Clostridiales-1 RNA: a 178-nucleotide sequence from Eubacterium sp. CAG:248. It scores 119 bits against the family's covariance model. By type it is a small RNA. Lineage of the source: Bacteria > Bacillati > Bacillota > Eubacteriales > Eubacterium.
[Rfam]
RNA sequence: UGAUGUAAGUGUCAAAAGUAUAAAAAGUCGUUUCUGCUUGCAGAAAAAGGCUUUUUUACUUGGGACACGCUAAACACCGAAAACGGAAUAAAAUGUCGUGAAUACGGCAUUUUAUGAAAGUUUGAGGUGUUUAAGGAUUGUGUGAAUUGCAUAGCAAUGUAGCAAUCCUGAUACAUCA
Dot-bracket structure: (((((((..((((..(((((..(((((((.((((((....))))).).))))))).)))))..))))...((((((((..((((...((((((((((((....))))))))))))....))))..)))))))).(((((((....((((.....))))...)))))))...)))))))